RNA: Small nucleolar RNA ACA64
Organism: Rhynochetos jubatus
RNA sequence: GCAGGCUGAAAAUCGCUUGGGGUCUCCCGUGGCCCCCGGUGAGAUAACUGCGCCGACAGCAUAGGGAACGCUAAGCUUAUUGCCCACGUGCCGUGUGGGGAGUGAAACCCGUGUUCCCAUAACC
Numbered sequence: 001g002c003a004g005g006c007u008g009a010a011a012a013u014c015g016c017u018u019g020g021g022g023u024c025u026c027c028c029g030u031g032g033c034c035c036c037c038g039g040u041g042a043g044a045u046a047a048c049u050g051c052g053c054c055g056a057c058a059g060c061a062u063a064g065g066g067a068a069c070g071c072u073a074a075g076c077u078u079a080u081u082g083c084c085c086a087c088g089u090g091c092c093g094u095g096u097g098g099g100g101a102g103u104g105a106a107a108c109c110c111g112u113g114u115u116c117c118c119a120u121a122a123c124c
Stems, first nucleotide, its partner, number of pairs: 005051002008048001010045001013042004021034004065117001067115005077105005085097003